[Rfam]
The record is a 178-nucleotide RNA sequence from Peptococcaceae bacterium CEB3, which matches "Lysine riboswitch aptamer" in Rfam. Its family is annotated with lysine biosynthetic process in the Gene Ontology. The family's consensus secondary structure is taken from published work. NCBI's taxonomy places the organism under Bacteria, Bacillati, Clostridia, Eubacteriales, Peptococcaceae.
RNA sequence: GUCAGGGAUAGAGGCGCGGUUGAUUAUGAGUAGGCACCGGGAGCUGGCAAGCGAUGAGAGGUGCGGAAAGGAAUAACCGCCGAAGUACGGCCUGGGCCGCAGGUCCGUGCUGGUCCGGCACCGAAUAGGUGUCUGACUGUCAUCCGGUUUUGGGGCCGGAUGGAGCGCUAUCUCGCAU
Numbered sequence: 001g002u003c004a005g006g007g008a009u010a011g012a013g014g015c016g017c018g019g020u021u022g023a024u025u026a027u028g029a030g031u032a033g034g035c036a037c038c039g040g041g042a043g044c045u046g047g048c049a050a051g052c053g054a055u056g057a058g059a060g061g062u063g064c065g066g067a068a069a070g071g072a073a074u075a076a077c078c079g080c081c082g083a084a085g086u087a088c089g090g091c092c093u094g095g096g097c098c099g100c101a102g103g104u105c106c107g108u109g110c111u112g113g114u115c116c117g118g119c120a121c122c123g124a125a126u127a128g129g130u131g132u133c134u135g136a137c138u139g140u141c142a143u144c145c146g147g148u149u150u151u152g153g154g155g156c157c158g159g160a161u162g163g164a165g166c167g168c169u170a171u172c173u174c175g176c177a178u
Stems, first nucleotide, its partner, number of pairs: 006173006016080006023074003034064005084111007091103004112138004117133006140163007